[Rfam]
RNA sequence: AUCACUUAGGAUAUCUUAUUAAAAUGCAGAUUUUGAUUUAAUAAGCCUGAAGUGGGAGCUGAGAUUCUGCAUUUCUAAAAAGUUCCCAGGUGAUGCCCA
Numbered sequence: 001a002u003c004a005c006u007u008a009g010g011a012u013a014u015c016u017u018a019u020u021a022a023a024a025u026g027c028a029g030a031u032u033u034u035g036a037u038u039u040a041a042u043a044a045g046c047c048u049g050a051a052g053u054g055g056g057a058g059c060u061g062a063g064a065u066u067c068u069g070c071a072u073u074u075c076u077a078a079a080a081a082g083u084u085c086c087c088a089g090g091u092g093a094u095g096c097c098c099a
Stems, first nucleotide, its partner, number of pairs: 003092003009086003015082003019078003022074003026070005032064003